Shown here is an 85-nucleotide RNA from Medicago truncatula, a member of the family "Small nucleolar RNA R16". Pairs were carried over by alignment from the consensus structure, which was predicted with PFOLD. By type it is a C/D-box small nucleolar RNA. Gene Ontology terms of the family: nucleolus and RNA processing. The literature on the family includes a 2002 paper in Curr Biol by Marker et al., "Experimental RNomics: identification of 140 candidates for small non-messenger RNAs in the plant Arabidopsis thaliana".

[Rfam]
RNA sequence: UAUGGCAAAUGAUGAUUAAUUUUAACGCUUAUUGAUAUACUGAAUAACAAGUGUUGACAAAAACCUCUGACUAACUGAUGCCAUA
Numbered sequence: 001u002a003u004g005g006c007a008a009a010u011g012a013u014g015a016u017u018a019a020u021u022u023u024a025a026c027g028c029u030u031a032u033u034g035a036u037a038u039a040c041u042g043a044a045u046a047a048c049a050a051g052u053g054u055u056g057a058c059a060a061a062a063a064c065c066u067c068u069g070a071c072u073a074a075c076u077g078a079u080g081c082c083a084u085a
Base pairs, nucleotide, nucleotide: 003083004082005081006080007079